The record is a 127-nucleotide RNA from Cavia porcellus, which matches "Small nucleolar RNA SNORA38" in Rfam. By type it is an H/ACA-box small nucleolar RNA. Taxonomically the source falls in Cavia (Eukaryota, Chordata, Euteleostomi, Caviidae). The family has 25 seed sequences and 628 matches in Rfam 15.1. ACA38 is a member of the H/ACA class of snoRNA that guide the sites of modification of uridines to pseudouridines.
RNA sequence: CCCUCCUACAAAGGUGUGUCUUUUUCUCGUCUUUGUACCUAUAAGAACUGGAGGUAAAGAAAUGAGAUUUGGAGACAUCUAGGGUCAGCUUGCUCCUUGCAGACUCAAGAUCAACUGUUCCACAUAA
Numbered sequence: 001c002c003c004u005c006c007u008a009c010a011a012a013g014g015u016g017u018g019u020c021u022u023u024u025u026c027u028c029g030u031c032u033u034u035g036u037a038c039c040u041a042u043a044a045g046a047a048c049u050g051g052a053g054g055u056a057a058a059g060a061a062a063u064g065a066g067a068u069u070u071g072g073a074g075a076c077a078u079c080u081a082g083g084g085u086c087a088g089c090u091u092g093c094u095c096c097u098u099g100c101a102g103a104c105u106c107a108a109g110a111u112c113a114a115c116u117g118u119u120c121c122a123c124a125u126a127a
Base pairs, nucleotide, nucleotide: 002054003053004052005051006050015041016040018038019037021035066120067118069117087105088104090102091101092100093099